[Rfam]
Rfam assigns this 67-nucleotide RNA sequence from Bacillus oleivorans to the family "Listeria sRNA sbrA".
The base pairs follow the family's consensus structure, which was predicted with WAR.
It is annotated as a small RNA.
Lineage of the source: Bacteria > Bacillati > Bacilli > Bacillaceae > Bacillus.
RNA sequence: CUACAUCUAGAUCCAUACCCCUAAACUCCCUGGAUCUAUGGGAUAGCCUGAGCGCUAUCCCAUUUUU
Numbered sequence: 001c002u003a004c005a006u007c008u009a010g011a012u013c014c015a016u017a018c019c020c021c022u023a024a025a026c027u028c029c030c031u032g033g034a035u036c037u038a039u040g041g042g043a044u045a046g047c048c049u050g051a052g053c054g055c056u057a058u059c060c061c062a063u064u065u066u067u
Stems, first nucleotide, its partner, number of pairs: 005035005041060007